[Rfam]
RNA sequence: CCGCAUGGUGCUACCCCGGGCUCCUCGGAGGAGCUCCGCUCCCUGGUGACGACGCGAGCCCCAAUGCCCGUGCUAGAUCGAUUAGGCCGCGCUGUGUUGCAGAUCGGUUCGCGAUCUCCAUCGACUGAUCUGUGUCAAUGCGUUGGCUAAAUAA
Numbered sequence: 001c002c003g004c005a006u007g008g009u010g011c012u013a014c015c016c017c018g019g020g021c022u023c024c025u026c027g028g029a030g031g032a033g034c035u036c037c038g039c040u041c042c043c044u045g046g047u048g049a050c051g052a053c054g055c056g057a058g059c060c061c062c063a064a065u066g067c068c069c070g071u072g073c074u075a076g077a078u079c080g081a082u083u084a085g086g087c088c089g090c091g092c093u094g095u096g097u098u099g100c101a102g103a104u105c106g107g108u109u110c111g112c113g114a115u116c117u118c119c120a121u122c123g124a125c126u127g128a129u130c131u132g133u134g135u136c137a138a139u140g141c142g143u144u145g146g147c148u149a150a151a152u153a154a
Base pairs, nucleotide, nucleotide: 003073004072005071006070007069008068010067011066018061019060020059021058022057024054025052026051027050086147087146088145089144095137096136098134099133100132101131102130103129106125108123
Annotation: The record is a 154-nucleotide RNA from Musa balbisiana, which matches "small nucleolar RNA snoR134" in Rfam. The family's RNA type in Rfam is H/ACA-box small nucleolar RNA. For this family Rfam cites "Mining small RNA sequencing data: a new approach to identify small nucleolar RNAs in Arabidopsis" (Chen and Wu, Nucleic Acids Res, 2009). The family's consensus secondary structure was predicted with RNAalifold. Gene Ontology terms of the family: RNA processing and nucleolus.